[Rfam]
RNA sequence: UCGGGUGCCUCUCGGGCCCGGCACAGGCGAGAGCGUCGGCUCUUCCCGGCGCUUCUCAUGCUCAAAUUGCUUCACCCAUCGCCCGGCACUGGCCGGGCACAGGAGGAUUUGGAUAUGAGGA
Number, nucleotide and partner (000 for none) at each position: 001u021002c020003g019004g018005g017006u016007g000008c015009c014010u000011c000012u000013c000014g009015g008016g006017c005018c004019c003020g002021g001022c000023a000024c000025a000026g000027g000028c000029g000030a054031g000032a053033g052034c051035g050036u049037c048038g047039g046040c000041u000042c000043u000044u000045c000046c039047c038048g037049g036050c035051g034052c033053u032054u030055c119056u118057c117058a116059u115060g114061c000062u112063c111064a110065a109066a108067u107068u106069g000070c105071u104072u103073c000074a000075c000076c000077c000078a000079u000080c000081g000082c000083c000084c000085g000086g000087c000088a000089c000090u000091g000092g000093c000094c000095g000096g000097g000098c000099a000100c000101a000102g000103g072104a071105g070106g068107a067108u066109u065110u064111g063112g062113a000114u060115a059116u058117g057118a056119g055120g000121a000